[Rfam]
RNA sequence: GACCGUCACUUGCACUUUCUCUCGACGGUCGCGGCUG
Numbered sequence: 001g002a003c004c005g006u007c008a009c010u011u012g013c014a015c016u017u018u019c020u021c022u023c024g025a026c027g028g029u030c031g032c033g034g035c036u037g
Stems, first nucleotide, its partner, number of pairs: 001030007

The record is a 37-nucleotide sequence, which matches "S4-Bacteroidia ribosomal protein leader" in Rfam. On this family, see Eckert and Weinberg, BMC Microbiol 2020: "Discovery of 20 novel ribosomal leader candidates in bacteria and archaea". The family is grouped with related families in Rfam's "Ribosomal Protein S4 Leader clan".